[Rfam]
RNA: ATPC RNA motif
RNA sequence: UUCGUCUUUUAAGGCGAUCUGCUAAACACAUCCGCGCGUAGGUCCGACAUUCGAUCGGGCCCACUCCCUCAGAGAGUGUCCCAGCGCG
Dot-bracket structure: .(((((......))))).................(((((.(((((((.......)))))))(((((.(...).))))).....)))))